[Rfam]
RNA sequence: AUGUCCUGCCUCGUGAUCGGCUUCUCACCUUCGCACGGCGGGCGGAACGAGGAGAGCCCCCGUGAGGACGUGACUCACGGGGGCUUUCC
Numbered sequence: 001a002u003g004u005c006c007u008g009c010c011u012c013g014u015g016a017u018c019g020g021c022u023u024c025u026c027a028c029c030u031u032c033g034c035a036c037g038g039c040g041g042g043c044g045g046a047a048c049g050a051g052g053a054g055a056g057c058c059c060c061c062g063u064g065a066g067g068a069c070g071u072g073a074c075u076c077a078c079g080g081g082g083g084c085u086u087u088c089c
Stems, first nucleotide, its partner, number of pairs: 002044002005042006013034004019029002051089016